[Rfam]
RNA: mir-4872 microRNA precursor family
RNA sequence: UCGUAUGCGGUGCCGGGGCAACUAAAACUCUGAGUUCUCUUAGCCUCAGAGUUUUGUUACCCCGGCUCUCUGUGGG
Numbered sequence: 001u002c003g004u005a006u007g008c009g010g011u012g013c014c015g016g017g018g019c020a021a022c023u024a025a026a027a028c029u030c031u032g033a034g035u036u037c038u039c040u041u042a043g044c045c046u047c048a049g050a051g052u053u054u055u056g057u058u059a060c061c062c063c064g065g066c067u068c069u070c071u072g073u074g075g076g
Base pairs, nucleotide, nucleotide: 001076002075004074005073006072007071009069010068012066013065014064015063016062017061020058021057022056024055025054026053027052028051029050030049031048032047033046034044035043